Background
A member of the RNA family "ivy-DE RNA" from Stutzerimonas nosocomialis, 94 nucleotides long. Pairs were carried over by alignment from the consensus structure, which is taken from published work. Taxonomically the source falls in Stutzerimonas (Bacteria, Pseudomonadota, Gammaproteobacteria, Pseudomonadaceae). It scores 77 bits against the family's covariance model. It is annotated as a cis-regulatory element.
RNA sequence: GAACCAUGGGAUCGGGAUGUUCUGACGAGGUGUGUCGGAGCGACCUAGGGGUACAGGGAGUACCUCCGCGAUUGCGGAUCAGGUUCGGUGAAGG
Numbered sequence: 001g002a003a004c005c006a007u008g009g010g011a012u013c014g015g016g017a018u019g020u021u022c023u024g025a026c027g028a029g030g031u032g033u034g035u036c037g038g039a040g041c042g043a044c045c046u047a048g049g050g051g052u053a054c055a056g057g058g059a060g061u062a063c064c065u066c067c068g069c070g071a072u073u074g075c076g077g078a079u080c081a082g083g084u085u086c087g088g089u090g091a092a093g094g
Base pairs, nucleotide, nucleotide: 001086002085003084004083005082010080011079012078013077014046015045016044018042020040021039022038023037024036025035026034027033048066049065050064051063052062053061054060